[Rfam]
RNA sequence: GAUUGCAUUGAUGACUCCGAAAAUUCAAGCUCAACAGACCGGAUUGUAGGUCUCUUUUCUUUCAAGAGAGAGAGAGAGAGGGAGAUUUGCGUGUCGACGACCCCGCUGAACUGAGCAAUC
Numbered sequence: 001g002a003u004u005g006c007a008u009u010g011a012u013g014a015c016u017c018c019g020a021a022a023a024u025u026c027a028a029g030c031u032c033a034a035c036a037g038a039c040c041g042g043a044u045u046g047u048a049g050g051u052c053u054c055u056u057u058u059c060u061u062u063c064a065a066g067a068g069a070g071a072g073a074g075a076g077a078g079a080g081g082g083a084g085a086u087u088u089g090c091g092u093g094u095c096g097a098c099g100a101c102c103c104c105g106c107u108g109a110a111c112u113g114a115g116c117a118a119u120c
Stems, first nucleotide, its partner, number of pairs: 001120006
Dot-bracket structure: ((((((............................................................................................................))))))
A member of the RNA family "Small nucleolar RNA Z107/R87" from Asparagus officinalis, 120 nucleotides long. Taxonomically the source falls in Asparagus (Eukaryota, Embryophyta, Liliopsida, Asparagaceae). By type it is a C/D-box small nucleolar RNA.